Rfam assigns this 84-nucleotide sequence from Desulfosporosinus cupriresistens to the family "c-di-GMP-I riboswitch aptamer".
[Rfam]
RNA sequence: AAUAACGCAUAGCAAACCCGUCGAAAGACGGGGACGCAAAGCUACGGGUCUAAUGUUGUAAACGAUGAUCGCCGGGUUGCACUA
Numbered sequence: 001a002a003u004a005a006c007g008c009a010u011a012g013c014a015a016a017c018c019c020g021u022c023g024a025a026a027g028a029c030g031g032g033g034a035c036g037c038a039a040a041g042c043u044a045c046g047g048g049u050c051u052a053a054u055g056u057u058g059u060a061a062a063c064g065a066u067g068a069u070c071g072c073c074g075g076g077u078u079g080c081a082c083u084a
Stems, first nucleotide, its partner, number of pairs: 012037002017032006040078004045074003048069003055063003